[Rfam]
RNA: Microsporidia small subunit ribosomal RNA, nucleotides 1 to 483
RNA sequence: CACCAGGUUGAUUCUGCCUGUUAUAUGUACUAGUGUCGAAGAUUUAGCCAUGCAUGCUUUACGAAUUCACAAGAAGAAGUGGCGGACAGCUCAGUAAUACAGUUAUAAUAUACUCUCUACUAAAGGAUAACCGCGGUAAGCUGCGGGUAAAACUUCAAGCUAUGUGUUUCAUGAAAGAAUUUAUAGUUCAGAGUGUUAGUUUCUGGCCUAUUAGUUAGUAGGUAAUGUAAGGGAUUACCUAGACUAUUAUGGGUAACGGGAGAUGAAUGUCUGAUACCGGAGAGGAAGCCUUAGAAACCGCUUUCACGUCCAAGGAUGGCAGCAGGCGCGAAACUUACCCAAUCGUUUUUUAAGACGGAGGUAGUUAUGACACAUGUGAAUUAUUCACGAGGAAGAUCAAUAAAUCAGAUUUUUUUUACUGGAGGGCAAGUCUGGUGCCAGCAGCCGCGGUAAUUCCAGCUCCAGUAGUGCAUAUACAUGCUG
Numbered sequence: 001c002a003c004c005a006g007g008u009u010g011a012u013u014c015u016g017c018c019u020g021u022u023a024u025a026u027g028u029a030c031u032a033g034u035g036u037c038g039a040a041g042a043u044u045u046a047g048c049c050a051u052g053c054a055u056g057c058u059u060u061a062c063g064a065a066u067u068c069a070c071a072a073g074a075a076g077a078a079g080u081g082g083c084g085g086a087c088a089g090c091u092c093a094g095u096a097a098u099a100c101a102g103u104u105a106u107a108a109u110a111u112a113c114u115c116u117c118u119a120c121u122a123a124a125g126g127a128u129a130a131c132c133g134c135g136g137u138a139a140g141c142u143g144c145g146g147g148u149a150a151a152a153c154u155u156c157a158a159g160c161u162a163u164g165u166g167u168u169u170c171a172u173g174a175a176a177g178a179a180u181u182u183a184u185a186g187u188u189c190a191g192a193g194u195g196u197u198a199g200u201u202u203c204u205g206g207c208c209u210a211u212u213a214g215u216u217a218g219u220a221g222g223u224a225a226u227g228u229a230a231g232g233g234a235u236u237a238c239c240u241a242g243a244c245u246a247u248u249a250u251g252g253g254u255a256a257c258g259g260g261a262g263a264u265g266a267a268u269g270u271c272u273g274a275u276a277c278c279g280g281a282g283a284g285g286a287a288g289c290c291u292u293a294g295a296a297a298c299c300g301c302u303u304u305c306a307c308g309u310c311c312a313a314g315g316a317u318g319g320c321a322g323c324a325g326g327c328g329c330g331a332a333a334c335u336u337a338c339c340c341a342a343u344c345g346u347u348u349u350u351u352a353a354g355a356c357g358g359a360g361g362u363a364g365u366u367a368u369g370a371c372a373c374a375u376g377u378g379a380a381u382u383a384u385u386c387a388c389g390a391g392g393a394a395g396a397u398c399a400a401u402a403a404a405u406c407a408g409a410u411u412u413u414u415u416u417u418a419c420u421g422g423a424g425g426g427c428a429a430g431u432c433u434g435g436u437g438c439c440a441g442c443a444g445c446c447g448c449g450g451u452a453a454u455u456c457c458a459g460c461u462c463c464a465g466u467a468g469u470g471c472a473u474a475u476a477c478a479u480g481c482u483g
Stems, first nucleotide, its partner, number of pairs: 004020005022476010033373006039366002041329001047327003051324003056083002060081003066075002090282003100205003105200002109198002115193004123155003131146006207253003214244003219241008257279003261272004284305006307318004335363001337362003343358005393413006419465006432459004441448002